[Rfam]
RNA sequence: CCACUUCCCUGUCGCAGUGGUUACUUCGAGGAUUUUAUAAUCUGCUCCCCAUCCCUCCUCGGGAUUGAACCACGAGCGCUGUCCAGUGCUUUU
Numbered sequence: 001c002c003a004c005u006u007c008c009c010u011g012u013c014g015c016a017g018u019g020g021u022u023a024c025u026u027c028g029a030g031g032a033u034u035u036u037a038u039a040a041u042c043u044g045c046u047c048c049c050c051a052u053c054c055c056u057c058c059u060c061g062g063g064a065u066u067g068a069a070c071c072a073c074g075a076g077c078g079c080u081g082u083c084c085a086g087u088g089c090u091u092u093u
Stems, first nucleotide, its partner, number of pairs: 002088004013076001015074001017073004025069005
Overview
The family of this 93-nucleotide RNA sequence from Collichthys lucidus is "Vault RNA". The family's RNA type in Rfam is non-coding RNA gene.